Ruegeria cis52 sRNA: a 182-nucleotide RNA sequence from Neoaquamicrobium microcysteis. A reference for the family is Rivers et al. (2016), "Experimental Identification of Small Non-Coding RNAs in the Model Marine Bacterium Ruegeria pomeroyi DSS-3", Front Microbiol. Pairs were carried over by alignment from the consensus structure, which was predicted with RNAfold. Its family is annotated with regulation of gene expression in the Gene Ontology.
[Rfam]
RNA sequence: UGCGCAAGGCAUGUUUGACGACAACCGUGUUGAACGACAGGCCCUUGAGGCGCGCGGUGCGGAUAUAUUGCUGCGUCAUGACUUCGACCAUCGAGGCCCGCGUCAUGCGCGCGAUGUAGCCGAUGCCGUAGAUCGCCAUGGUCAUCACCGGCAGGGUGAAGUUGUAGAAUGUGAGGCCCUGG
Numbered sequence: 001u002g003c004g005c006a007a008g009g010c011a012u013g014u015u016u017g018a019c020g021a022c023a024a025c026c027g028u029g030u031u032g033a034a035c036g037a038c039a040g041g042c043c044c045u046u047g048a049g050g051c052g053c054g055c056g057g058u059g060c061g062g063a064u065a066u067a068u069u070g071c072u073g074c075g076u077c078a079u080g081a082c083u084u085c086g087a088c089c090a091u092c093g094a095g096g097c098c099c100g101c102g103u104c105a106u107g108c109g110c111g112c113g114a115u116g117u118a119g120c121c122g123a124u125g126c127c128g129u130a131g132a133u134c135g136c137c138a139u140g141g142u143c144a145u146c147a148c149c150g151g152c153a154g155g156g157u158g159a160a161g162u163u164g165u166a167g168a169a170u171g172u173g174a175g176g177c178c179c180u181g182g
Stems, first nucleotide, its partner, number of pairs: 005140002008137003014131002016128002021124001028123001038113001041110002046105003050101003054097001055075002059071004082096005145182003148175001151172003154165001156163001